Small nucleolar RNA SNORD67: a 108-nucleotide RNA from Callorhinchus milii.
Rfam 15.1 lists 781 matches to the family in 618 species.

RNA sequence: UGUGAGAGUGAUGAGUUGCACUCUGAAUGGGACAGUAAUGCAGUGACAUGGCUGUUUCAUUCUGAACCCUGAUGACUAAACAUGUGCACAGGGGCCAUCUGACUCGCA
Numbered sequence: 001u002g003u004g005a006g007a008g009u010g011a012u013g014a015g016u017u018g019c020a021c022u023c024u025g026a027a028u029g030g031g032a033c034a035g036u037a038a039u040g041c042a043g044u045g046a047c048a049u050g051g052c053u054g055u056u057u058c059a060u061u062c063u064g065a066a067c068c069c070u071g072a073u074g075a076c077u078a079a080a081c082a083u084g085u086g087c088a089c090a091g092g093g094g095c096c097a098u099c100u101g102a103c104u105c106g107c108a
Base pairs, nucleotide, nucleotide: 004107006105007104008103022065023064025062027060028059029058030057032055033054034053038049039048040047

It is annotated as a C/D-box small nucleolar RNA. The base pairs follow the family's consensus structure. A search with the family's covariance model found it, with a score of 76 bits. Rfam describes the family as follows. snoRNA HBII-166 belongs to the C/D family of snoRNAs.